[Rfam]
RNA sequence: UCCGACUGCGCUUACCCGAGCACGAACGGAUCGUCUCACUUAGAGAUGUUCAUUAAAUUAGGGUGGGAAAUUCGGUGAAAUCCUCAUGAAUGUUCUCUUGAGAGACUGCAGUAGAUUGCAGGCGACAGCCACUAGAAACUGAGCCAUUCGAGUAAUUGAAUAGGCAUGGGACAGCUGUGCGAGGAUUGGCAUAUGAUUUGCCUUGAGUUCAAUGCGCAGUGUGUUAGCUUGAAUGUUAGCAUAACCCGAUACCGAUCAUGGA
Numbered sequence: 001u002c003c004g005a006c007u008g009c010g011c012u013u014a015c016c017c018g019a020g021c022a023c024g025a026a027c028g029g030a031u032c033g034u035c036u037c038a039c040u041u042a043g044a045g046a047u048g049u050u051c052a053u054u055a056a057a058u059u060a061g062g063g064u065g066g067g068a069a070a071u072u073c074g075g076u077g078a079a080a081u082c083c084u085c086a087u088g089a090a091u092g093u094u095c096u097c098u099u100g101a102g103a104g105a106c107u108g109c110a111g112u113a114g115a116u117u118g119c120a121g122g123c124g125a126c127a128g129c130c131a132c133u134a135g136a137a138a139c140u141g142a143g144c145c146a147u148u149c150g151a152g153u154a155a156u157u158g159a160a161u162a163g164g165c166a167u168g169g170g171a172c173a174g175c176u177g178u179g180c181g182a183g184g185a186u187u188g189g190c191a192u193a194u195g196a197u198u199u200g201c202c203u204u205g206a207g208u209u210c211a212a213u214g215c216g217c218a219g220u221g222u223g224u225u226a227g228c229u230u231g232a233a234u235g236u237u238a239g240c241a242u243a244a245c246c247c248g249a250u251a252c253c254g255a256u257c258a259u260g261g262a
Base pairs, nucleotide, nucleotide: 003219006216014064015063016062017061029051030050032048033047034046035045036044037043073254074253075252076251077250082184083183084182085181094105095104096103097102106121107120108119109118110117111116122180123179125178126177127176128175129174143165144164145163221242222241223240224239225238226237227236
RNA: Nuclear RNase P
Organism: Tortispora caseinolytica